[Rfam]
About this RNA:
A member of the RNA family "MIR8008 microRNA precursor family" from Solanum commersonii, 55 nucleotides long. The family has 2 seed sequences and 240 matches in Rfam 15.1. Its family is annotated with RISC complex and miRNA-mediated post-transcriptional gene silencing in the Gene Ontology. NCBI's taxonomy places the organism under Eukaryota, Gunneridae, lamiids, Solanales, Solanum.
RNA sequence: AUUUCUAGAAAAGUGACGGACAGUGUACUUUUGUCCGUAGCUUUUCUGGGAUUUU
Numbered sequence: 001a002u003u004u005c006u007a008g009a010a011a012a013g014u015g016a017c018g019g020a021c022a023g024u025g026u027a028c029u030u031u032u033g034u035c036c037g038u039a040g041c042u043u044u045u046c047u048g049g050g051a052u053u054u055u
Stems, first nucleotide, its partner, number of pairs: 001053001003051012016038006